[Rfam]
RNA sequence: UAAGUCCAGUGUCAGGCGGCUAUGCAUACGGCAAGCUUGCUUGCAAGGAUGCAUAGACAUCUGACACGACAACAGAAAUCGAGAAUAAGCGCGAUAGCGCGAAUUCGAGAUUCCUGUUAGGAUUGCGAAAGUUGCACAGCAACGAAGCAAUCCGCAGGACUUA
Dot-bracket structure: (((((((..(((..((.(.((((((((.(.(((((....)))))..).)))))))).).))..))).....((((.((((..((((..((((....))))..))))..)))).))))..(((((((....((((.....))))...)))))))...)))))))
RNA: Clostridiales-1 RNA
Organism: Oribacterium sp. C9